RNA sequence: GAUUAGAUAUUCGGGAGCUUGUUUAUAGGCUGAGAGGAAACUUUAGUUUCGACCGUACCUGAUUUGGAUAAUGCCAACGUAGGGAUAAAUUAUUGAUUAUAAA
Numbered sequence: 001g002a003u004u005a006g007a008u009a010u011u012c013g014g015g016a017g018c019u020u021g022u023u024u025a026u027a028g029g030c031u032g033a034g035a036g037g038a039a040a041c042u043u044u045a046g047u048u049u050c051g052a053c054c055g056u057a058c059c060u061g062a063u064u065u066g067g068a069u070a071a072u073g074c075c076a077a078c079g080u081a082g083g084g085a086u087a088a089a090u091u092a093u094u095g096a097u098u099a100u101a102a103a
Stems, first nucleotide, its partner, number of pairs: 006091003010087001012055003017030005037050005058083004064077004
RNA: TPP riboswitch aptamer (THI element)
Organism: Sedimentibacter sp. zth1